The record is an 80-nucleotide sequence from Nothocercus julius, which matches "Small nucleolar RNA SNORD87" in Rfam. The match comes from Rfam's covariance-model search (57 bits). By type it is a C/D-box small nucleolar RNA. Gene Ontology terms of the family: RNA processing and nucleolus.
[Rfam]
RNA sequence: GCUGGCAUAAUGAUGAUGACUCUUUUGCCGUUUACCCAACUGAGUUUUUUUGAUGAGUAACUUGUAUCUGAAGUGCCAGC
Dot-bracket structure: (((((((..................................................................)))))))

Rfam 15.1 lists 539 matches to the family in 430 species. Taxonomically the source falls in Nothocercus (Eukaryota, Gnathostomata, Euteleostomi, Saurischia). The base pairs follow the family's consensus structure.